[Rfam]
Overview
Rfam assigns this 145-nucleotide RNA sequence from Brevibacillus borstelensis to the family "c-di-AMP riboswitch aptamer (ydaO/yuaA leader)". On this family, see Barrick et al., Proc Natl Acad Sci U S A 2004: "New RNA motifs suggest an expanded scope for riboswitches in bacterial genetic control". A search with the family's covariance model found it, with a score of 83 bits. NCBI's taxonomy places the organism under Bacteria, Bacilli, Caryophanales, Paenibacillaceae, Brevibacillus borstelensis.
RNA sequence: AAUAGCCAUAAGCUUAAUUUCCGAUUUGCAUAAUCGGAAAGCGGGGGAACCACUUUUUCCGGGGCGAAUCGGCAGCAUAUCUGCCGUAGGGAACCAUCUUUCCCGAGUCCGUCAGCUAACCUCGUCAGCCUCAAGAUGGGUCAAA
Numbered sequence: 001a002a003u004a005g006c007c008a009u010a011a012g013c014u015u016a017a018u019u020u021c022c023g024a025u026u027u028g029c030a031u032a033a034u035c036g037g038a039a040a041g042c043g044g045g046g047g048a049a050c051c052a053c054u055u056u057u058u059c060c061g062g063g064g065c066g067a068a069u070c071g072g073c074a075g076c077a078u079a080u081c082u083g084c085c086g087u088a089g090g091g092a093a094c095c096a097u098c099u100u101u102c103c104c105g106a107g108u109c110c111g112u113c114a115g116c117u118a119a120c121c122u123c124g125u126c127a128g129c130c131u132c133a134a135g136a137u138g139g140g141u142c143a144a145a
Stems, first nucleotide, its partner, number of pairs: 012129003018040009041125006051061001062110003070086004089104004